[Rfam]
RNA sequence: GGAUGUGAGGGCGAUCUGGCUGCGACAUCUGUCACCCCAUUGAUCGCCAGGGUUGAUUCGGCUGAUCUGGCUGACUAGGCGGGUGUCCCCUUCCUCCCUCACCGCUCCAUGUGCGUCCCUCCCGAAGCUGCGCGCUCGGUCGAAGAGGACGACCUUAUCCGAGGAGGACCGUUCUUCGGUCAAGGGUAUACGAGUAGCUUCGCUCCCCUGCUAGAACCUCCAAACAAGCUCUCAAGGUAGAACUCAGGAAGUAUUUAACAAUAAAGAUGUCUUCUAUUUCCACUUAGUUUUUCAUUUUUAAAACAAAUAAAU
Numbered sequence: 001g002g003a004u005g006u007g008a009g010g011g012c013g014a015u016c017u018g019g020c021u022g023c024g025a026c027a028u029c030u031g032u033c034a035c036c037c038c039a040u041u042g043a044u045c046g047c048c049a050g051g052g053u054u055g056a057u058u059c060g061g062c063u064g065a066u067c068u069g070g071c072u073g074a075c076u077a078g079g080c081g082g083g084u085g086u087c088c089c090c091u092u093c094c095u096c097c098c099u100c101a102c103c104g105c106u107c108c109a110u111g112u113g114c115g116u117c118c119c120u121c122c123c124g125a126a127g128c129u130g131c132g133c134g135c136u137c138g139g140u141c142g143a144a145g146a147g148g149a150c151g152a153c154c155u156u157a158u159c160c161g162a163g164g165a166g167g168a169c170c171g172u173u174c175u176u177c178g179g180u181c182a183a184g185g186g187u188a189u190a191c192g193a194g195u196a197g198c199u200u201c202g203c204u205c206c207c208c209u210g211c212u213a214g215a216a217c218c219u220c221c222a223a224a225c226a227a228g229c230u231c232u233c234a235a236g237g238u239a240g241a242a243c244u245c246a247g248g249a250a251g252u253a254u255u256u257a258a259c260a261a262u263a264a265a266g267a268u269g270u271c272u273u274c275u276a277u278u279u280c281c282a283c284u285u286a287g288u289u290u291u292u293c294a295u296u297u298u299u300a301a302a303a304c305a306a307a308u309a310a311a312u
Stems, first nucleotide, its partner, number of pairs: 001108003005102007013093002018090002024087010036073001037070003042067004046062003116167002118164002122139004127135002140162003147158001149156001197259001199257001203251002207248004218240002221237001284310003288306001289303004
Shown here is a 312-nucleotide RNA sequence from Spermophilus dauricus, a member of the family "7SK RNA". A search with the family's covariance model found it, with a score of 258 bits. Pairs were carried over by alignment from the consensus structure, which is taken from published work. 7SK was discovered as an abundant small nuclear RNA in the mid-70s but a possible function has only recently been suggested. Two independent studies have found that 7SK RNA binds the CDK9/cyclin T complex (known as elongation factor P-TEFb). P-TEFb activates transcription by phosphorylating the C-terminal domain of RNA polymerase II. This process is negatively regulated by the 7SK RNP. The secondary structure of 7SK RNA shown here was proposed by Wasserman and Steitz on the basis of chemical modification and enzymatic cleavage experiments. This family contains a number of annotated pseudogenes and 7SK derived repeats. It is annotated as a non-coding RNA gene. The organism belongs to Spermophilus, within Eukaryota. On this family, see Wassarman and Steitz, Mol Cell Biol 1991: "Structural analyses of the 7SK ribonucleoprotein (RNP), the most abundant human small RNP of unknown function". Its Rfam clan is "7SK clan".